[Rfam]
RNA: mir-7 microRNA precursor family
RNA sequence: GGCCCUGGGCAGGCUGGAAGACUUGUGAUUUUGUUGUUUCCAAUCCCAAGGGCAGCAAACAACAAAUCCCAGUCUCCACCCUGCCCCGGGCA
Numbered sequence: 001g002g003c004c005c006u007g008g009g010c011a012g013g014c015u016g017g018a019a020g021a022c023u024u025g026u027g028a029u030u031u032u033g034u035u036g037u038u039u040c041c042a043a044u045c046c047c048a049a050g051g052g053c054a055g056c057a058a059a060c061a062a063c064a065a066a067u068c069c070c071a072g073u074c075u076c077c078a079c080c081c082u083g084c085c086c087c088g089g090g091c092a
Stems, first nucleotide, its partner, number of pairs: 002091004007086002010083004015078003019075005025070001027068005033063006